[Rfam]
RNA sequence: UUAAUUGUAUAAUAUAAGCUUACAUGCCCUUCUAUUCUAUAUAAUUAUUAGAAUAACAUAGAGUAGAAUAGAAGAAUCGGGUGAAUUGCACGAAUAUCUCUGCUUGCUGCUUGCUCCUUGGUUUUUAGCAUAAAGAGACAACUUGCAGCUAAGCUUACGUCAGUACAUCCUAUAUUAUUCUAAUACAUUGAAUGACAUAGGUUAGGACGUAAGAAAGUUCAAAGACUAAUUGGUGAUUUGUACUAAAUUAUCCAGACACGAGUGCCCGACUAGUAGUAUAAGCCGUACUACUAAAUGACAUAGUCUAAACUUACAUGUGAAUGUAAG
Numbered sequence: 001u002u003a004a005u006u007g008u009a010u011a012a013u014a015u016a017a018g019c020u021u022a023c024a025u026g027c028c029c030u031u032c033u034a035u036u037c038u039a040u041a042u043a044a045u046u047a048u049u050a051g052a053a054u055a056a057c058a059u060a061g062a063g064u065a066g067a068a069u070a071g072a073a074g075a076a077u078c079g080g081g082u083g084a085a086u087u088g089c090a091c092g093a094a095u096a097u098c099u100c101u102g103c104u105u106g107c108u109g110c111u112u113g114c115u116c117c118u119u120g121g122u123u124u125u126u127a128g129c130a131u132a133a134a135g136a137g138a139c140a141a142c143u144u145g146c147a148g149c150u151a152a153g154c155u156u157a158c159g160u161c162a163g164u165a166c167a168u169c170c171u172a173u174a175u176u177a178u179u180c181u182a183a184u185a186c187a188u189u190g191a192a193u194g195a196c197a198u199a200g201g202u203u204a205g206g207a208c209g210u211a212a213g214a215a216a217g218u219u220c221a222a223a224g225a226c227u228a229a230u231u232g233g234u235g236a237u238u239u240g241u242a243c244u245a246a247a248u249u250a251u252c253c254a255g256a257c258a259c260g261a262g263u264g265c266c267c268g269a270c271u272a273g274u275a276g277u278a279u280a281a282g283c284c285g286u287a288c289u290a291c292u293a294a295a296u297g298a299c300a301u302a303g304u305c306u307a308a309a310c311u312u313a314c315a316u317g318u319g320a321a322u323g324u325a326a327g
Stems, first nucleotide, its partner, number of pairs: 006041004011036003048055001077269004082264002087147004092142001097138005148218002155211001222306001224305005272292008312325005
A member of the RNA family "Group I catalytic intron" from Tilletia controversa, 327 nucleotides long. Rfam links the family to the GO term Group I intron splicing. Group I catalytic introns are large self-splicing ribozymes. They catalyse their own excision from mRNA, tRNA and rRNA precursors in a wide range of organisms. The base pairs follow the family's consensus structure, which is taken from published work. The organism belongs to Tilletia, within Eukaryota.